RNA sequence: AUGUAAGGUGAAACAACUAUAUCUAUUUAAUUGUGAAAAGUUGCAAUCUGAUUAUAUCAUCGUGUCUGUUUAUAUGCAAUAUAUAAGAACCUGGAUAACUACCCAGGUUCUUUUUUGA
Numbered sequence: 001a002u003g004u005a006a007g008g009u010g011a012a013a014c015a016a017c018u019a020u021a022u023c024u025a026u027u028u029a030a031u032u033g034u035g036a037a038a039a040g041u042u043g044c045a046a047u048c049u050g051a052u053u054a055u056a057u058c059a060u061c062g063u064g065u066c067u068g069u070u071u072a073u074a075u076g077c078a079a080u081a082u083a084u085a086a087g088a089a090c091c092u093g094g095a096u097a098a099c100u101a102c103c104c105a106g107g108u109u110c111u112u113u114u115u116u117g118a
Base pairs, nucleotide, nucleotide: 033073034072035071036070037069039065042062043061083114085112086111087110088109089108090107091106092105093104094103
The family of this 118-nucleotide sequence from Paenibacillus baekrokdamisoli is "Bacillus sRNA ncr1015". The source organism's lineage runs through Bacteria, Bacillati, Bacillota, Bacilli and Paenibacillus. By type it is a small RNA. The family's consensus secondary structure is taken from published work. The match comes from Rfam's covariance-model search (101 bits).